[Rfam]
This 120-nucleotide sequence from Desulfotruncus arcticus belongs to the Rfam family "Molybdenum/Tungsten riboswitch aptamer (Moco RNA motif)".
The family's consensus secondary structure is taken from published work.
The family has 160 seed sequences and 1,248 matches in Rfam 15.1.
RNA sequence: UAAAUAAAAAUGCUCCGAACCGUCUGGCCUAAGUCCCAAUGAUAAGGUUAACGGUCGUUAGGGUAUAGUUGGAAACGAUUAUGCCUUCCUUAUUUGAAAAGGAGCACAAGUUUUAAGGUU
Numbered sequence: 001u002a003a004a005u006a007a008a009a010a011u012g013c014u015c016c017g018a019a020c021c022g023u024c025u026g027g028c029c030u031a032a033g034u035c036c037c038a039a040u041g042a043u044a045a046g047g048u049u050a051a052c053g054g055u056c057g058u059u060a061g062g063g064u065a066u067a068g069u070u071g072g073a074a075a076c077g078a079u080u081a082u083g084c085c086u087u088c089c090u091u092a093u094u095u096g097a098a099a100a101g102g103a104g105c106a107c108a109a110g111u112u113u114u115a116a117g118g119u120u
Stems, first nucleotide, its partner, number of pairs: 003114002006111001011106006019055005025050005033043003061086011087097002
Dot-bracket structure: ..((.(....((((((..(((((.(((((...(((.....)))..)))))))))).....(((((((((((....)))))))))))((.......))...))))))....).))......